[Rfam]
RNA: tRNA
RNA sequence: GCCGGCUUAGCUCAGAUGGUAGAGCAGUUGUUUUGUAAACAUCAGGUCACGGGUUCGAUUCCUGUAGCCGGCA
Numbered sequence: 001g002c003c004g005g006c007u008u009a010g011c012u013c014a015g016a017u018g019g020u021a022g023a024g025c026a027g028u029u030g031u032u033u034u035g036u037a038a039a040c041a042u043c044a045g046g047u048c049a050c051g052g053g054u055u056c057g058a059u060u061c062c063u064g065u066a067g068c069c070g071g072c073a
Base pairs, nucleotide, nucleotide: 001072002071003070004069005068006067007066010025011024012023013022027043029041030040031039049065050064051063052062053061